[Rfam]
RNA: Small nucleolar RNA SNORA12
RNA sequence: UAUUGUGGUGGUUUCUGUAUCUGGCCGAUCUGUAACAGUAUCAGAGCGGCCUUGAGCCACCACAAAGAUCGGAAUGGAGGACGGGCAUCCUGAGAGCUGUUUCAAGCUUUCAGUUUUCAGGAUUUUUUUUUUAUUUUCGGUUCAACUCCUACAAAA
Dot-bracket structure: ....(((((((...........(((.(.((((.........)))).).))).....)))))))............(((((((((............)))))................(.((...............)).).....)))).......